[Rfam]
RNA sequence: AUACCUCUGGCCCUUUGGAAGACUAGUGAUUUUGUUGUUGUGAAUGUCAAAGAACUAACAAAAAAUCACUGUCGGCCACUGGGGACAGAGGU
Numbered sequence: 001a002u003a004c005c006u007c008u009g010g011c012c013c014u015u016u017g018g019a020a021g022a023c024u025a026g027u028g029a030u031u032u033u034g035u036u037g038u039u040g041u042g043a044a045u046g047u048c049a050a051a052g053a054a055c056u057a058a059c060a061a062a063a064a065a066u067c068a069c070u071g072u073c074g075g076c077c078a079c080u081g082g083g084g085a086c087a088g089a090g091g092u
Stems, first nucleotide, its partner, number of pairs: 002091001005088002011083003016078003021073003026069007035061005
The family of this 92-nucleotide RNA from Strongylocentrotus purpuratus is "mir-7 microRNA precursor family". Pairs were carried over by alignment from the consensus structure, which was predicted with PFOLD. About the family: This family represents the microRNA (miRNA) precursor mir-7. The sequence is in the family's curated seed alignment.